[Rfam]
Shown here is a 600-nucleotide part of an RNA from Leptomonas pyrrhocoris, a member of the family "Eukaryotic small subunit ribosomal RNA". The family is grouped with related families in Rfam's "SSU clan". Its family is annotated with structural constituent of ribosome and ribosome in the Gene Ontology. A search with the family's covariance model found it, with a score of 1269 bits.
RNA sequence: GGUUCGUAGUUGAACUGUGGGCUGUGUAGGUUUGUUCCUGGUCGUCCUGUCCAUGUCGGAUUUGUUGGCCCAGGCCCUUGCAGCCCGUGAACAUUCAAAGAAACAAGAAACACGGGAGUGGUUCCUUUCCUGAUUUACGCAUGUCAUGCAUGCCAGGGGGCGUCCGUGAUUUUUUACUGUGACUAAAGAAGUGUGACUAAAGCAGUCAUCCGACUUGAAUUAGAAAGCAUGGGAUAACAAAGGAGCAGCCUCUAGGCUACCGUUUCGGCUUUUGUUGGUUUUAAAGGUCUAUUGGAGAUUAUGGAGCUGUGCGACAAGCGCUUUCCCAGCGUACUUCGGUGCGGUGUGUGGCGCCUUUGGGGGGUUUAGUGCGUUCGGCUCGGGCUCCGGUCCGACUGGGCGUAACGCCUUUUCAACUCACGGCCUCUAGGAAUGAAGGAGGGUAGUUCGGGGGAGAACGUACUGGGGCGUCAGAGGUGAAAUUCUUAGACCGCACCAAGACGAACUACAGCGAAGGCAUUCUUCAAGGAUACCUUCCUCAAUCAAGAACCAAAGUGUGGAGAUCGAAGAUGAUUAGAGACCAUUGUAGUCCACGCUGCA
Dot-bracket structure: .((((...(((.............................................................................................................................................................................................................................................................................................................................................................................................................................................(((..((((...((((((((...(((.(((...(((......)))......))).)))...)).......((....)).))))))..))))...)))...)))...))))....((((((....(...((((.........))))...).))))))....